RNA sequence: ACCUUGGCUUUAGACUGCUUACUGCUUGAAACAGUCUCACAGUUACAGUAACAGUCUACAGUCAUGGCU
Numbered sequence: 001a002c003c004u005u006g007g008c009u010u011u012a013g014a015c016u017g018c019u020u021a022c023u024g025c026u027u028g029a030a031a032c033a034g035u036c037u038c039a040c041a042g043u044u045a046c047a048g049u050a051a052c053a054g055u056c057u058a059c060a061g062u063c064a065u066g067g068c069u
Base pairs, nucleotide, nucleotide: 002067003066005064006063007062008061013056014055015054016053017052019051020050021049022048023047